[Rfam]
Shown here is a 100-nucleotide RNA sequence from Paenibacillus spiritus, a member of the family "Purine riboswitch aptamer". A search with the family's covariance model found it, with a score of 66 bits.

RNA sequence: AGGCGUUGGCACAUCAAUAUUCGUAUAAUUCCGGGAAUCGGCCCGGAAGUUUCUACAAGGUCACCGUAAUGACCUGGCUACGAUUAGAGAUGCCGCAGGU
Dot-bracket structure: .................((.(((((...(((((((......))))))).........((((((......))))))...))))).))..............
Numbered sequence: 001a002g003g004c005g006u007u008g009g010c011a012c013a014u015c016a017a018u019a020u021u022c023g024u025a026u027a028a029u030u031c032c033g034g035g036a037a038u039c040g041g042c043c044c045g046g047a048a049g050u051u052u053c054u055a056c057a058a059g060g061u062c063a064c065c066g067u068a069a070u071g072a073c074c075u076g077g078c079u080a081c082g083a084u085u086a087g088a089g090a091u092g093c094c095g096c097a098g099g100u
Stems, first nucleotide, its partner, number of pairs: 018086002021083005029048007058075006